[Rfam]
RNA sequence: CUCCUCGAAACAUCUUUAGGGAUGGCCUGACGAAGUAGCAGGUGGAGGUAAAGUACUCAAUGGGCUAGGGAACUUACCAGUUUACCGAACCCAAUGAAACUCUGAAUGCCAUCUGUGUAAUCGUUGGAGUCAGACAGCGGGGGAUAAGCUUCGUUGUCAAAAGGGGAAAAACCCAGAUCGCCAGCUAAGGUCCCUAAAUGUACGCUAAGUGGUAAAGGAUGUGAGGAUUCUCAGACAACUGGGAUGUUGGCUUAGAGGCAGCCAUCAUUUAAAGAGUGCGUAACAGCUCACCAGUCGAGAAAUCUUGCACCGAAAAUGAUCGGGGCUCAAGCGUACUACCGAAGCUGCGGAUGUGAUUCUUCUUCGGAACGAAUCACGUGGUAGAGGAGCAUUCCUUCAGGGCUGAAGCGGAACCGAAAGGAUCCGUGGACUGGAAGGAAGAGAUUAU
Numbered sequence: 001c002u003c004c005u006c007g008a009a010a011c012a013u014c015u016u017u018a019g020g021g022a023u024g025g026c027c028u029g030a031c032g033a034a035g036u037a038g039c040a041g042g043u044g045g046a047g048g049u050a051a052a053g054u055a056c057u058c059a060a061u062g063g064g065c066u067a068g069g070g071a072a073c074u075u076a077c078c079a080g081u082u083u084a085c086c087g088a089a090c091c092c093a094a095u096g097a098a099a100c101u102c103u104g105a106a107u108g109c110c111a112u113c114u115g116u117g118u119a120a121u122c123g124u125u126g127g128a129g130u131c132a133g134a135c136a137g138c139g140g141g142g143g144a145u146a147a148g149c150u151u152c153g154u155u156g157u158c159a160a161a162a163g164g165g166g167a168a169a170a171a172c173c174c175a176g177a178u179c180g181c182c183a184g185c186u187a188a189g190g191u192c193c194c195u196a197a198a199u200g201u202a203c204g205c206u207a208a209g210u211g212g213u214a215a216a217g218g219a220u221g222u223g224a225g226g227a228u229u230c231u232c233a234g235a236c237a238a239c240u241g242g243g244a245u246g247u248u249g250g251c252u253u254a255g256a257g258g259c260a261g262c263c264a265u266c267a268u269u270u271a272a273a274g275a276g277u278g279c280g281u282a283a284c285a286g287c288u289c290a291c292c293a294g295u296c297g298a299g300a301a302a303u304c305u306u307g308c309a310c311c312g313a314a315a316a317u318g319a320u321c322g323g324g325g326c327u328c329a330a331g332c333g334u335a336c337u338a339c340c341g342a343a344g345c346u347g348c349g350g351a352u353g354u355g356a357u358u359c360u361u362c363u364u365c366g367g368a369a370c371g372a373a374u375c376a377c378g379u380g381g382u383a384g385a386g387g388a389g390c391a392u393u394c395c396u397u398c399a400g401g402g403c404u405g406a407a408g409c410g411g412a413a414c415c416g417a418a419a420g421g422a423u424c425c426g427u428g429g430a431c432u433g434g435a436a437g438g439a440a441g442a443g444a445u446u447a448u
Stems, first nucleotide, its partner, number of pairs: 001389006011024005026129001027127007036120001038116008051103001052101002057097003061093004068086002070083005133158010163174003178350004183346003189340003198337001200336006217311002221308006228301003238295005244268003249263003269273001274289001278287002351379008390443001392440007400432002408427005414421002
This 448-nucleotide part of an RNA from an uncultured bacterium belongs to the Rfam family "Bacterial large subunit ribosomal RNA". Gene Ontology terms of the family: ribosome and structural constituent of ribosome. The base pairs follow the family's consensus structure, which is taken from published work.